[Rfam]
RNA sequence: GACAAUUCCCCAUGAUGGUAUGAGUAUUAGGAAUGAUACGCACGCCGUUAGAUACUGCAACGGUCAUUUGGGGCAGUAUGUUCCCCAUAGUCCGAGUGCAGAGCCGGUGUCAUGCUAAAUGGGUUUAUCAUUGA
Numbered sequence: 001g002a003c004a005a006u007u008c009c010c011c012a013u014g015a016u017g018g019u020a021u022g023a024g025u026a027u028u029a030g031g032a033a034u035g036a037u038a039c040g041c042a043c044g045c046c047g048u049u050a051g052a053u054a055c056u057g058c059a060a061c062g063g064u065c066a067u068u069u070g071g072g073g074c075a076g077u078a079u080g081u082u083c084c085c086c087a088u089a090g091u092c093c094g095a096g097u098g099c100a101g102a103g104c105c106g107g108u109g110u111c112a113u114g115c116u117a118a119a120u121g122g123g124u125u126u127a128u129c130a131u132u133g134a
Stems, first nucleotide, its partner, number of pairs: 009123005017116006024039006042110006055101005063092001065090001067089001069087004

A member of the RNA family "RAGATH-4 RNA", 134 nucleotides long. Rfam's curators put it in the seed alignment. The base pairs follow the family's consensus structure, which is taken from published work.